[Rfam]
RNA sequence: AAUAAUCAUCCAUUCACAACGGAUCGUCCGGCACGUACCUGCCGGUGAAGGGAAACAUCA
Number, nucleotide and partner (000 for none) at each position: 001a000002a000003u000004a000005a000006u000007c000008a000009u000010c052011c051012a000013u049014u048015c047016a046017c000018a000019a000020c000021g000022g000023a000024u000025c000026g000027u000028c045029c044030g043031g042032c041033a040034c000035g000036u000037a000038c000039c000040u033041g032042c031043c030044g029045g028046u016047g015048a014049a013050g000051g011052g010053a000054a000055a000056c000057a000058u000059c000060a000

The record is a 60-nucleotide RNA from Micrococcales bacterium KH10, which matches "msiK RNA" in Rfam. The family has 120 seed sequences and 1,374 matches in Rfam 15.1. Lineage of the source: Bacteria > Bacillati > Actinomycetota > Actinomycetes > Micrococcales. A search with the family's covariance model found it, with a score of 67 bits.